RNA sequence: AACCAACAACAACCUUUUUAUUUUUCAUUUUACUCCUCCAGAGUAAAAUAACUCCUUUUUUUCCGUCUACUAAAUAAGUAGGCGGUUUUUUUG
Numbered sequence: 001a002a003c004c005a006a007c008a009a010c011a012a013c014c015u016u017u018u019u020a021u022u023u024u025u026c027a028u029u030u031u032a033c034u035c036c037u038c039c040a041g042a043g044u045a046a047a048a049u050a051a052c053u054c055c056u057u058u059u060u061u062u063c064c065g066u067c068u069a070c071u072a073a074a075u076a077a078g079u080a081g082g083c084g085g086u087u088u089u090u091u092u093g
Stems, first nucleotide, its partner, number of pairs: 029047007063085009